[Rfam]
RNA sequence: AUUUCAAUACAUCUUAUGUUACGGUUCAUC
Numbered sequence: 001a002u003u004u005c006a007a008u009a010c011a012u013c014u015u016a017u018g019u020u021a022c023g024g025u026u027c028a029u030c
Stems, first nucleotide, its partner, number of pairs: 009019004
Dot-bracket structure: ........((((...))))...........
Annotation: The record is a 30-nucleotide sequence from Epulopiscium sp. Nele67-Bin004, which matches "CRISPR RNA direct repeat element" in Rfam. A search with the family's covariance model found it, with a score of 42 bits. The source organism's lineage runs through Bacteria, Bacillota, Clostridia, Lachnospirales and Candidatus Epulonipiscium. The base pairs follow the family's consensus structure, which was predicted with WAR.